[Rfam]
Nucleotides: 062
Stems, first nucleotide, its partner, number of pairs: 001062005015048010030037001
Number, partner (000 for none) and nucleotide at each position: 001062g002061g003060u004059g005058u006000a007000u008000u009000u010000a011000u012000g013000a014000u015048g016047g017046u018045c019044u020043g021042u022041u023040u024039u025000u026000a027000a028000a029000c030037u031000c032000a033000g034000a035000a036000a037030a038000a039024g040023g041022a042021g043020c044019a045018g046017a047016c048015c049000u050000g051000a052000u053000g054000u055000u056000u057000c058005a059004c060003a061002c062001c
Source information:
Shown here is a 62-nucleotide RNA from Cyprinodon variegatus, a member of the family "Selenocysteine insertion sequence 1". NCBI's taxonomy places the organism under Eukaryota, Eumetazoa, Bilateria, Clupeocephala, Cyprinodon. A reference for the family is Walczak et al. (1996), "A novel RNA structural motif in the selenocysteine insertion element of eukaryotic selenoprotein mRNAs", RNA. Rfam classes the family as a cis-regulatory element.